[Rfam]
RNA sequence: CCGUCCAAGGAGCGUUGCAGCACCCACAGCGGUGCCAGGCUUGGAAGGUUUUGCCCCGCAACCGCGCUCACGUUUC
Number, nucleotide and partner (000 for none) at each position: 001c000002c047003g000004u045005c044006c043007a042008a041009g000010g000011a000012g000013c000014g000015u000016u000017g000018c000019a000020g000021c034022a033023c032024c031025c000026a000027c000028a000029g000030c000031g024032g023033u022034g021035c000036c000037a000038g000039g000040c000041u008042u007043g006044g005045a004046a000047g002048g000049u000050u000051u000052u000053g000054c000055c000056c000057c000058g000059c000060a000061a000062c000063c000064g000065c000066g000067c000068u000069c000070a000071c000072g000073u000074u000075u000076c000